[Rfam]
This 97-nucleotide sequence from Homo sapiens belongs to the Rfam family "mir-544 microRNA precursor family". A search with the family's covariance model found it, with a score of 70 bits. Rfam 15.1 lists 10,750 matches to the family in 132 species. The base pairs follow the family's consensus structure, which was predicted with RNAalifold. The literature on the family includes a 2010 paper in Genes Dev by Chiang et al., "Mammalian microRNAs: experimental evaluation of novel and previously annotated genes".
RNA sequence: AUCACCUAGGGACCCUGUUAAAAUGUAGAUUUUGACUCAGUAGAUUUAGGGUGGGCCUAAGAUUCCGCAUUUCUAACAAGAUCCAAGGUGAUGUGAA
Numbered sequence: 001a002u003c004a005c006c007u008a009g010g011g012a013c014c015c016u017g018u019u020a021a022a023a024u025g026u027a028g029a030u031u032u033u034g035a036c037u038c039a040g041u042a043g044a045u046u047u048a049g050g051g052u053g054g055g056c057c058u059a060a061g062a063u064u065c066c067g068c069a070u071u072u073c074u075a076a077c078a079a080g081a082u083c084c085a086a087g088g089u090g091a092u093g094u095g096a097a
Base pairs, nucleotide, nucleotide: 003090004089005088009084010083011082014080016078017077018076019075020074021072022071023070025068026067028065029064031062032061033060